[Rfam]
RNA sequence: CGCUGUUCUCAGGGCGGGGCGAAAUUCCCCACCGGCGGUAUGCAGGCUGAAUCCUGCGAGCCCGCGAGCGGUCUCAGGCGCGGAUCACACCGCAACAGAGAUGUCAGCAGAUCUGGUGCAAUUCCAGAGCCGACGGUCAUAGUCCGGAUGGAAGAGAACGUAC
Numbered sequence: 001c002g003c004u005g006u007u008c009u010c011a012g013g014g015c016g017g018g019g020c021g022a023a024a025u026u027c028c029c030c031a032c033c034g035g036c037g038g039u040a041u042g043c044a045g046g047c048u049g050a051a052u053c054c055u056g057c058g059a060g061c062c063c064g065c066g067a068g069c070g071g072u073c074u075c076a077g078g079c080g081c082g083g084a085u086c087a088c089a090c091c092g093c094a095a096c097a098g099a100g101a102u103g104u105c106a107g108c109a110g111a112u113c114u115g116g117u118g119c120a121a122u123u124c125c126a127g128a129g130c131c132g133a134c135g136g137u138c139a140u141a142g143u144c145c146g147g148a149u150g151g152a153a154g155a156g157a158a159c160g161u162a163c
Stems, first nucleotide, its partner, number of pairs: 004160007017029003031143002033132002035065004060130002068108002112128005134146003